Shown here is a 116-nucleotide RNA sequence from Mesorhizobium sp. WSM3876, a member of the family "Alphaproteobacterial ar14".
[Rfam]
RNA sequence: AAUACCCGAUGGGCGGAACCUCCUCCCUCUGCUCUUCGGGGUGACCAGCCAGCACCUCCUCCCGCUGGCUUGUAACAGGAAAAGGCCGGCACCUCCUCCCGCCGGCCUUUUCUUUU
Numbered sequence: 001a002a003u004a005c006c007c008g009a010u011g012g013g014c015g016g017a018a019c020c021u022c023c024u025c026c027c028u029c030u031g032c033u034c035u036u037c038g039g040g041g042u043g044a045c046c047a048g049c050c051a052g053c054a055c056c057u058c059c060u061c062c063c064g065c066u067g068g069c070u071u072g073u074a075a076c077a078g079g080a081a082a083a084g085g086c087c088g089g090c091a092c093c094u095c096c097u098c099c100c101g102c103c104g105g106c107c108u109u110u111u112c113u114u115u116u
Base pairs, nucleotide, nucleotide: 007038008037009036011034012033013032014031015030016029017028043071047070048069049068050067051066052065080111081110082109083108084107085106086105087104088103089102090101